[Rfam]
RNA sequence: CCCGCAAACGGCGAUGGAGUUCGCCGGGCGUAGGCCGAAUGCUCUUUGAGCUGAUGACUCCUGUCCCCCU
Numbered sequence: 001c002c003c004g005c006a007a008a009c010g011g012c013g014a015u016g017g018a019g020u021u022c023g024c025c026g027g028g029c030g031u032a033g034g035c036c037g038a039a040u041g042c043u044c045u046u047u048g049a050g051c052u053g054a055u056g057a058c059u060c061c062u063g064u065c066c067c068c069c070u
Stems, first nucleotide, its partner, number of pairs: 010025004016061006041051003
Dot-bracket structure: .........[[[[..((((((]]]]...............(((.....)))....)))))).........
RNA: Fluoride riboswitch aptamer (crcB RNA motif)